Shown here is an 86-nucleotide RNA from Myotis lucifugus, a member of the family "mir-9195 microRNA precursor family". The match comes from Rfam's covariance-model search (92 bits). The source organism's lineage runs through Eukaryota, Chordata, Gnathostomata, Vespertilionidae and Myotis.
[Rfam]
RNA sequence: AGAGGCCCUCUGCAGCCGGGCGGGACGCUUGCCUCAUCGCCAUGGCGAUGAAGCAAGCAUUCCGCCAGGCCGCUCACGCUGCCUGU
Number, nucleotide and partner (000 for none) at each position: 001a000002g000003a000004g083005g082006c081007c000008c000009u000010c000011u000012g073013c072014a000015g070016c069017c068018g000019g066020g065021c064022g063023g062024g061025a060026c000027g058028c057029u056030u055031g054032c053033c000034u000035c000036a049037u048038c047039g046040c045041c000042a000043u000044g000045g040046c039047g038048a037049u036050g000051a000052a000053g032054c031055a030056a029057g028058c027059a000060u025061u024062c023063c022064g021065c020066c019067a000068g017069g016070c015071c000072g013073c012074u000075c000076a000077c000078g000079c000080u000081g006082c005083c004084u000085g000086u000